[Rfam]
RNA sequence: UUUAAAGUUUAAUGUAAGUCGCUUUGGAUAAAAGCGUCAGCUAAAUGACAUGUA
Numbered sequence: 001u002u003u004a005a006a007g008u009u010u011a012a013u014g015u016a017a018g019u020c021g022c023u024u025u026g027g028a029u030a031a032a033a034g035c036g037u038c039a040g041c042u043a044a045a046u047g048a049c050a051u052g053u054a
Stems, first nucleotide, its partner, number of pairs: 013043001014041002020036006
RNA: UnaL2 LINE 3' element
Organism: Gasterosteus aculeatus